[Rfam]
RNA sequence: UUACAAUUUUUCGAUAUAGAACACUCAUGUCGAUAAAACAGCUUGAACCCUCU
Dot-bracket structure: ..........(((((((.........)))))))....................
Numbered sequence: 001u002u003a004c005a006a007u008u009u010u011u012c013g014a015u016a017u018a019g020a021a022c023a024c025u026c027a028u029g030u031c032g033a034u035a036a037a038a039c040a041g042c043u044u045g046a047a048c049c050c051u052c053u
Stems, first nucleotide, its partner, number of pairs: 011033007
Rfam assigns this 53-nucleotide RNA from Abrus precatorius to the family "Plastid-atpF group II-D1 intron". Rfam 15.1 lists 1,372 matches to the family in 227 species. Taxonomically the source falls in Abrus (Eukaryota, Viridiplantae, Tracheophyta, Magnoliopsida). It scores 63 bits against the family's covariance model. From the family's description: Plastid atpF is a non-coding RNA (ncRNA) recognised in plastids. It has been reported in the intron group II-D1 region of ATP synthase (atpF) genes. The base pairs follow the family's consensus structure, which was predicted with LocARNA.